Shown here is a 102-nucleotide RNA sequence from Robertmurraya siralis, a member of the family "Purine riboswitch aptamer".
The match comes from Rfam's covariance-model search (86 bits).
[Rfam]
Nucleotides: 102
Base pairs, nucleotide, nucleotide: 018088019087020086021085022084023083024082025081030048031047032046033045034044058078059077060076061075062074063073064072
Number, partner (000 for none) and nucleotide at each position: 001000g002000c003000g004000u005000u006000u007000a008000u009000a010000a011000c012000a013000u014000g015000a016000a017000u018088c019087c020086u021085u022084c023083a024082u025081a026000u027000a028000u029000c030048c031047u032046c033045g034044g035000u036000a037000a038000u039000a040000u041000g042000g043000u044034c045033c046032g047031a048030g049000a050000g051000u052000c053000u054000c055000u056000a057000c058078c059077g060076a061075a062074u063073c064072a065000c066000c067000u068000u069000a070000a071000a072064u073063g074062a075061u076060u077059u078058g079000a080000c081025u082024a083023u084022g085021a086020a087019g088018g089000c090000a091000g092000g093000a094000a095000u096000a097000u098000u099000c100000u101000a102000u
The organism belongs to Robertmurraya, within Bacteria. A reference for the family is Batey et al. (2004), "Structure of a natural guanine-responsive riboswitch complexed with the metabolite hypoxanthine", Nature. Rfam links the family to the GO term purine nucleobase biosynthetic process.